[Rfam]
RNA sequence: UCGCGUGCACUGGGGUCGGUGAAAUUCCGAGCCGGCGGUGAGAGUCCGCGACCCGUCCGCAGCCAGCGGGCGGUUGACCAGGUGGAAUUCCUGGACCGACGGUCAGAGUCCGGAAGGGAAGCGCACGCAG
Numbered sequence: 001u002c003g004c005g006u007g008c009a010c011u012g013g014g015g016u017c018g019g020u021g022a023a024a025u026u027c028c029g030a031g032c033c034g035g036c037g038g039u040g041a042g043a044g045u046c047c048g049c050g051a052c053c054c055g056u057c058c059g060c061a062g063c064c065a066g067c068g069g070g071c072g073g074u075u076g077a078c079c080a081g082g083u084g085g086a087a088u089u090c091c092u093g094g095a096c097c098g099a100c101g102g103u104c105a106g107a108g109u110c111c112g113g114a115a116g117g118g119a120a121g122c123g124c125a126c127g128c129a130g
Stems, first nucleotide, its partner, number of pairs: 003128006010121001017029003031109002033098002035049004044096002053073002078094005100112003
Dot-bracket structure: ..((((((.(......(((.......))).[[((((((.....[[))))...((.................))....(((((.......)))))]])).(((.....]])))........).))))))..
Annotation:
FMN riboswitch aptamer (RFN element): a 130-nucleotide RNA sequence from Nocardioides zeae. Its family is annotated with FMN binding in the Gene Ontology. The match comes from Rfam's covariance-model search (90 bits). The family's consensus secondary structure is taken from published work.